[Rfam]
RNA: mir-544 microRNA precursor family
Organism: Balaenoptera musculus
RNA sequence: UUCACUUGGGGAUCUUGUUAGAAAGCAGAUUCUAACUCAUUUGGUUCGGGGUAAGACCUGAGAUUCUGCAUUUCUAACAAGUUCCUAGGAGAUUUCGA
Number, nucleotide and partner (000 for none) at each position: 001u000002u000003c091004a000005c089006u000007u000008g000009g085010g084011g083012a000013u000014c081015u080016u079017g078018u077019u076020a075021g073022a072023a071024a000025g069026c068027a067028g066029a065030u000031u063032c062033u061034a000035a000036c000037u000038c000039a000040u000041u000042u000043g000044g000045u000046u000047c000048g000049g000050g000051g000052u000053a000054a000055g000056a000057c000058c000059u000060g000061a033062g032063a031064u000065u029066c028067u027068g026069c025070a000071u023072u022073u021074c000075u020076a019077a018078c017079a016080a015081g014082u000083u011084c010085c009086u000087a000088g000089g005090a000091g003092a000093u000094u000095u000096c000097g000098a000